[Rfam]
RNA sequence: UUCUAAAGCAUUGCACCCAGAGUCUGGUCCCCAGACACUGUACCUGGAGCUUUGUUCUUUUAAUUAAAUGUUUUG
Numbered sequence: 001u002u003c004u005a006a007a008g009c010a011u012u013g014c015a016c017c018c019a020g021a022g023u024c025u026g027g028u029c030c031c032c033a034g035a036c037a038c039u040g041u042a043c044c045u046g047g048a049g050c051u052u053u054g055u056u057c058u059u060u061u062a063a064u065u066a067a068a069u070g071u072u073u074u075g
Base pairs, nucleotide, nucleotide: 005053006052007051008050009049017047018046019045020044022036023035024034025033026032

Background: Shown here is a 75-nucleotide RNA sequence from Triplophysa rosa, a member of the family "U1A polyadenylation inhibition element (PIE)". About the family: This family represents the U1A polyadenylation inhibition element (PIE). PIE is a regulatory RNA which is responsible for the regulation of the length of the polyA tail of the U1A pre-mRNA. The PIE is located in the U1A mRNA 3' UTR. PIE adopts a U-shaped structure, with binding sites for a single U1A protein at each bend and when complexed with the two proteins it blocks activity of poly(A) polymerase (PAP), and inhibits its activity. Taxonomically the source falls in Triplophysa (Eukaryota, Metazoa, Vertebrata, Cypriniformes). By type it is a cis-regulatory element. Gene Ontology term of the family: regulation of mRNA polyadenylation.